[Rfam]
RNA sequence: GAUCAAGAAGAUCAGCCGCAAGCCCUUCGGCAGGCUGACUGGCAACCGCGCAUCGCGCACGGUGCCCCCGAAGGAAGAUCGGCUCUGUACUCAAAAGAAUGCAGAGAAGAGCGAUUU
Numbered sequence: 001g002a003u004c005a006a007g008a009a010g011a012u013c014a015g016c017c018g019c020a021a022g023c024c025c026u027u028c029g030g031c032a033g034g035c036u037g038a039c040u041g042g043c044a045a046c047c048g049c050g051c052a053u054c055g056c057g058c059a060c061g062g063u064g065c066c067c068c069c070g071a072a073g074g075a076a077g078a079u080c081g082g083c084u085c086u087g088u089a090c091u092c093a094a095a096a097g098a099a100u101g102c103a104g105a106g107a108a109g110a111g112c113g114a115u116u117u
Stems, first nucleotide, its partner, number of pairs: 001080004009040001012038005022031001041066003046062003050058002083106007091098002
Dot-bracket structure: ((((....(..(((((.....(........)..))))).)(((..(((.((.....)).))).)))..........))))..(((((((.((....)).)))))))...........